RNase MRP: a 244-nucleotide sequence from Nezara viridula. Rfam classes the family as a ribozyme. It scores 92 bits against the family's covariance model.
[Rfam]
RNA sequence: GUGUUGGAGAGAGCGCAACUGCCUGGGCUACAUACAGAGUGCGCUGUCACUCACUCGCCCAGAGGAAGUUCCCCGGACGCUCGGCAGAGAGUGCCGUGAUCGAAAGGUCAUAGCCUCGACCGAGACCUCGACCGUAGAGGGAGGAGACGACUGUCGAGGUCGGUACGGGAGCCUUGGUCAUAGCAAAGUCAUGUUGAGUUCCACCCUUCAUGGUUAACAGAACGGGGGCUACUCCUCUCUUAUA
Dot-bracket structure: .(((.((((((..[.[[[[...((((((........(((((......)))))....))))))....(((.((((........((((.....))))((((((....)))))).((.....(((..((...((((.............((....))...)))).)).)))..))....................]]]].]..(((.......)))..........)))))))....)))))).)))